About this RNA
This 104-nucleotide RNA from Helicobacter enhydrae belongs to the Rfam family "TPP riboswitch aptamer (THI element)". The organism belongs to Helicobacter, within Bacteria. It scores 55 bits against the family's covariance model.
RNA sequence: GUUUCAAGUGACGGGAGUCUAUACAUAGGCUGAGAGUAAGCUAAGAGCUUAGACCGAACCGGAUCUGGGUAAUGCCAGCGUCGGGAACGCUAGAAUCAUAUUUG
Numbered sequence: 001g002u003u004u005c006a007a008g009u010g011a012c013g014g015g016a017g018u019c020u021a022u023a024c025a026u027a028g029g030c031u032g033a034g035a036g037u038a039a040g041c042u043a044a045g046a047g048c049u050u051a052g053a054c055c056g057a058a059c060c061g062g063a064u065c066u067g068g069g070u071a072a073u074g075c076c077a078g079c080g081u082c083g084g085g086a087a088c089g090c091u092a093g094a095a096u097c098a099u100a101u102u103u104g
Stems, first nucleotide, its partner, number of pairs: 007091004012056003017030005037051005059084004065078004